The record is a 91-nucleotide RNA from Salarias fasciatus, which matches "mir-731 microRNA precursor family" in Rfam. The source organism's lineage runs through Eukaryota, Opisthokonta, Euteleostomi, Percomorphaceae and Salarias.
[Rfam]
RNA sequence: AGGUGUUUUUUCCUCAAUGACACGUUUUCUCCCGGAUUGCUAAAAACUUCAGUUGCAACCGGGAAUUUCGUGUCAGACAAGAAUCACACCC
Numbered sequence: 001a002g003g004u005g006u007u008u009u010u011u012c013c014u015c016a017a018u019g020a021c022a023c024g025u026u027u028u029c030u031c032c033c034g035g036a037u038u039g040c041u042a043a044a045a046a047c048u049u050c051a052g053u054u055g056c057a058a059c060c061g062g063g064a065a066u067u068u069c070g071u072g073u074c075a076g077a078c079a080a081g082a083a084u085c086a087c088a089c090c091c
Base pairs, nucleotide, nucleotide: 002090003089004088005087006086010083011082012081018075019074020073021072022071023070024069030064031063032062033061034060035059037058038057039056040055043054044053